[Rfam]
RNA: Glycine riboswitch aptamer
Nucleotides: 098
Stems, first nucleotide, its partner, number of pairs: 006093008020041002023038003043078003046074002050072003057065001
Number, partner (000 for none) and nucleotide at each position: 001000c002000g003000a004000c005000c006093u007092c008091g009090u010089g011088c012087g013086g014000g015000a016000g017000a018000g019000u020041c021040c022000a023038c024037c025036g026000g027000u028000u029000c030000c031000c032000g033000g034000a035000c036025c037024g038023g039000c040021g041020g042000c043078g044077c045076c046074g047073a048000a049000g050072g051071a052070g053000c054000a055000a056000a057065u058000c059000c060000u061000c062000c063000c064000c065057g066000g067000a068000a069000u070052c071051u072050c073047u074046c075000a076045g077044g078043c079000c080000c081000c082000a083000g084000u085000a086013c087012c088011g089010c090009g091008c092007g093006g094000g095000g096000g097000a098000g